[Rfam]
RNA sequence: GUCAGAUUCAGCUCUGCUAAUGGGGUAGGAACCGAAGCUCCUCUCGGGGUUACACAGGCUCUCCUACCCAACUCCUAUUCCGUCACGUCCUCGUCGUACAGAGUGGUAACUUUCUCCACCACAUAUCCAAGCUUGGGUACACGGGCCUGUCCCAACCCUUGGGCGGAUGGUGGAGAAAGGCUAAACAGGAGGGG
Numbered sequence: 001g002u003c004a005g006a007u008u009c010a011g012c013u014c015u016g017c018u019a020a021u022g023g024g025g026u027a028g029g030a031a032c033c034g035a036a037g038c039u040c041c042u043c044u045c046g047g048g049g050u051u052a053c054a055c056a057g058g059c060u061c062u063c064c065u066a067c068c069c070a071a072c073u074c075c076u077a078u079u080c081c082g083u084c085a086c087g088u089c090c091u092c093g094u095c096g097u098a099c100a101g102a103g104u105g106g107u108a109a110c111u112u113u114c115u116c117c118a119c120c121a122c123a124u125a126u127c128c129a130a131g132c133u134u135g136g137g138u139a140c141a142c143g144g145g146c147c148u149g150u151c152c153c154a155a156c157c158c159u160u161g162g163g164c165g166g167a168u169g170g171u172g173g174a175g176a177a178a179g180g181c182u183a184a185a186c187a188g189g190a191g192g193g194g
Base pairs, nucleotide, nucleotide: 011104012103013102014101015100016099023069024068025067026066027065028064029063030062032058033057073194074193075192076191078190079189081188085097086096087095089106090105110179111178112177113176114175115174117172118171119170120169125168126167127166128165133155134154135153136152137151156163157162